A member of the RNA family "U4 spliceosomal RNA" from Culex quinquefasciatus, 141 nucleotides long. By type it is a spliceosomal small nuclear RNA. Lineage of the source: Eukaryota > Arthropoda > Altocrustacea > Neoptera > Culex pipiens complex. It is one of the family's seed sequences. The literature on the family includes a 2017 paper in Cell by Bertram et al., "Cryo-EM Structure of a Pre-catalytic Human Spliceosome Primed for Activation". From the family's description: U4 small nuclear RNA (U4 snRNA) is a component of the major U2-dependent spliceosome.
RNA sequence: AGCUUUGCGCAGUGGCGAUAUCGUAACCAAUGAGGUACAUCCGAGGUGCGAUUAUUGCUAGUUGAAAACUAAUACCAAUACCCCGCCAUGGGGACGUGAAAUACCGUCCGCUACGGCAAUUUUUGAAAACCCCGAAAGGGG
Number, nucleotide and partner (000 for none) at each position: 001a000002g000003c000004u000005u000006u000007g000008c000009g000010c000011a000012g000013u000014g000015g000016c000017g000018a000019u000020a052021u051022c050023g049024u048025a000026a047027c046028c045029a000030a000031u000032g000033a000034g042035g041036u000037a000038c000039a000040u000041c035042c034043g000044a000045g028046g027047u026048g024049c023050g022051a021052u020053u000054a000055u000056u000057g000058c000059u000060a000061g000062u000063u000064g000065a000066a000067a000068a000069c000070u000071a000072a000073u000074a000075c000076c000077a000078a000079u000080a000081c000082c000083c000084c000085g117086c116087c115088a000089u113090g112091g111092g109093g108094a107095c106096g105097u103098g102099a000100a000101a000102u098103a097104c000105c096106g095107u094108c093109c092110g000111c091112u090113a089114c000115g087116g086117c085118a000119a000120u000121u000122u000123u000124u000125g000126a000127a000128a000129a000130c141131c140132c139133c138134g000135a000136a000137a000138g133139g132140g131141g130